let-7 microRNA precursor family: an 88-nucleotide RNA from Gouania willdenowi.
Its Rfam clan is "let-7 microRNA precursor clan".
This family represents the microRNAs (miRNA) let-7 and mir-98. let-7 was identified from a study of developmental timing in C. elegans, and was later shown to be part of a much larger class of non-coding RNAs termed miRNAs.
Rfam 15.1 lists 8,694 matches to the family in 797 species.
NCBI's taxonomy places the organism under Eukaryota, Craniata, Euacanthomorphacea, Blenniiformes, Gouania.
The base pairs follow the family's consensus structure, which was predicted with RNAalifold.
RNA sequence: GCUGGCUGAGGUAGUAGUUUGUGCUGUUGGUCGGGCUGUCGUGUUGCCCCUUUAUGGAGAUGACUGCGCAAACUACUGCCUUGCCAAA
Numbered sequence: 001g002c003u004g005g006c007u008g009a010g011g012u013a014g015u016a017g018u019u020u021g022u023g024c025u026g027u028u029g030g031u032c033g034g035g036c037u038g039u040c041g042u043g044u045u046g047c048c049c050c051u052u053u054a055u056g057g058a059g060a061u062g063a064c065u066g067c068g069c070a071a072a073c074u075a076c077u078g079c080c081u082u083g084c085c086a087a088a
Stems, first nucleotide, its partner, number of pairs: 003086004008082017026064002033049004052059002